RNA sequence: UUUGUGCCUUUUCGGUGUAUCCGUGAGGCCAACGUAAGAACCAGCACCGACGGGGGGUAGCCCUCGCCGGAGAACCCUGUUCAGCUUAC
Number, nucleotide and partner (000 for none) at each position: 001u000002u000003u000004g000005u000006g000007c000008c028009u027010u000011u025012u000013c023014g022015g021016u000017g000018u000019a000020u000021c015022c014023g013024u000025g011026a000027g009028g008029c000030c000031a000032a000033c000034g000035u000036a000037a000038g000039a000040a000041c000042c000043a000044g000045c000046a000047c000048c069049g068050a000051c066052g065053g064054g063055g062056g061057g000058u000059a000060g000061c056062c055063c054064u053065c052066g051067c000068c049069g048070g000071a000072g000073a000074a000075c000076c000077c000078u000079g000080u000081u000082c000083a000084g000085c000086u000087u000088a000089c000